Shown here is a 47-nucleotide RNA sequence from Aeoliella straminimaris, a member of the family "Acido-Lenti-1 RNA". The source organism's lineage runs through Bacteria, Pseudomonadati, Planctomycetia, Lacipirellulaceae and Aeoliella.
[Rfam]
RNA sequence: CCCGGGACUGACGUCCCGGGCUAUGCGCUGUCGCCACUGGCGUGGCU
Numbered sequence: 001c002c003c004g005g006g007a008c009u010g011a012c013g014u015c016c017c018g019g020g021c022u023a024u025g026c027g028c029u030g031u032c033g034c035c036a037c038u039g040g041c042g043u044g045g046c047u
Stems, first nucleotide, its partner, number of pairs: 001020008033046005